Nucleotides: 076
Base pairs, nucleotide, nucleotide: 003074005072006071010067011066012065013064014063015062016061017060020058021057023054024053026051027050028049029048030047
Number, partner (000 for none) and nucleotide at each position: 001000a002000g003074a004000c005072u006071g007000g008000g009000a010067a011066a012065u013064c014063u015062c016061u017060g018000c019000a020058g021057g022000c023054a024053a025000g026051u027050g028049u029048g030047a031000u032000g033000u034000c035000u036000u037000u038000a039000u040000a041000a042000c043000a044000a045000u046000c047030u048029c049028a050027c051026a052000a053024u054023u055000a056000c057021c058020u059000g060017c061016a062015g063014a064013g065012a066011u067010u068000c069000u070000a071006c072005a073000a074003u075000c076000u

This 76-nucleotide RNA from Onychorhynchus coronatus belongs to the Rfam family "mir-216 microRNA precursor family". It scores 72 bits against the family's covariance model. Taxonomically the source falls in Onychorhynchus (Eukaryota, Vertebrata, Archelosauria, Coelurosauria). Gene Ontology terms of the family: RISC complex and miRNA-mediated post-transcriptional gene silencing. The literature on the family includes a 2003 paper in Science by Lim et al., "Vertebrate microRNA genes".